[Rfam]
RNA sequence: GUUGUGAACGGAUGAUAUUUCCACAACGACCGUGAUUUAGAUAAGGUCGGUGGGACUUUCGUCCGUUUAGAAC
Numbered sequence: 001g002u003u004g005u006g007a008a009c010g011g012a013u014g015a016u017a018u019u020u021c022c023a024c025a026a027c028g029a030c031c032g033u034g035a036u037u038u039a040g041a042u043a044a045g046g047u048c049g050g051u052g053g054g055a056c057u058u059u060c061g062u063c064c065g066u067u068u069a070g071a072a073c
Stems, first nucleotide, its partner, number of pairs: 003071001005069003009065007017057001019055003024052002027049005

Shown here is a 73-nucleotide RNA sequence from Pseudolycoriella hygida, a member of the family "mir-278 microRNA precursor family". Pairs were carried over by alignment from the consensus structure, which was predicted with RNAalifold. It scores 60 bits against the family's covariance model. For this family Rfam cites "Systematic discovery and characterization of fly microRNAs using 12 Drosophila genomes" (Stark et al., Genome Res, 2007). NCBI's taxonomy places the organism under Eukaryota, Metazoa, Hexapoda, Dicondylia, Pseudolycoriella. Gene Ontology terms of the family: miRNA-mediated post-transcriptional gene silencing and RISC complex.